[Rfam]
RNA sequence: GGGUGCUUGAGGCUAUCUGCCUCGGGCAUGAACACCAACGGCAGAUAGAGAAAAGCCCCAGUUAACAUUACGCGUCCUGCAAGACGCUUAACAUUAAUCUGAGCUCAAUCCAUGCUGAAACAUGUAAGUUAGCCUCUCUUACUGUGCGAAAGGCAGGAGAAGCAGGCUAUGAAG
Dot-bracket structure: (((.((((....(((((((((....(........)....)))))))))....)))))))((.(((..((....................))..)).).))((((..(((.((((......))))...))).)...)))...((.....................))........
Numbered sequence: 001g002g003g004u005g006c007u008u009g010a011g012g013c014u015a016u017c018u019g020c021c022u023c024g025g026g027c028a029u030g031a032a033c034a035c036c037a038a039c040g041g042c043a044g045a046u047a048g049a050g051a052a053a054a055g056c057c058c059c060a061g062u063u064a065a066c067a068u069u070a071c072g073c074g075u076c077c078u079g080c081a082a083g084a085c086g087c088u089u090a091a092c093a094u095u096a097a098u099c100u101g102a103g104c105u106c107a108a109u110c111c112a113u114g115c116u117g118a119a120a121c122a123u124g125u126a127a128g129u130u131a132g133c134c135u136c137u138c139u140u141a142c143u144g145u146g147c148g149a150a151a152g153g154c155a156g157g158a159g160a161a162g163c164a165g166g167c168u169a170u171g172a173a174g
Stems, first nucleotide, its partner, number of pairs: 001059003005056004013048009026035001060100002063097001064095002068091002101138003104132001107130003111124004142166002

Rfam assigns this 174-nucleotide RNA from Escherichia coli to the family "sok antitoxin (CssrC)". It is one of the family's seed sequences. On this family, see Peng et al., PLoS One 2011: "An integrated approach for finding overlooked genes in Shigella". NCBI's taxonomy places the organism under Bacteria, Pseudomonadota, Enterobacteriaceae, Escherichia, Escherichia coli O157:H7. Rfam classes the family as an antitoxin RNA. The family has 91 seed sequences and 305 matches in Rfam 15.1. Also identified in Shigella as CssrC. The base pairs follow the family's consensus structure, which is taken from published work.